[Rfam]
A member of the RNA family "narK RNA" from Pseudomonas sp. HLS-6, 72 nucleotides long. The match comes from Rfam's covariance-model search (58 bits). Pairs were carried over by alignment from the consensus structure, which is taken from published work. Lineage of the source: Bacteria > Pseudomonadati > Pseudomonadota > Pseudomonadales > Pseudomonas.
RNA sequence: GGCGCGGCCCUUGCUUUGGCUUGUUCAUCAGGCAAUCAACGCAGAUUGCUCUAUUCACGACAAAGGCGCCGU
Number, nucleotide and partner (000 for none) at each position: 001g000002g000003c000004g000005c000006g000007g000008c000009c000010c000011u000012u000013g000014c000015u000016u000017u000018g000019g000020c000021u000022u000023g000024u000025u000026c000027a000028u000029c000030a000031g050032g049033c048034a047035a046036u045037c044038a000039a000040c000041g000042c000043a000044g037045a036046u035047u034048g033049c032050u031051c000052u000053a000054u000055u000056c000057a000058c000059g000060a000061c000062a000063a000064a000065g000066g000067c000068g000069c000070c000071g000072u000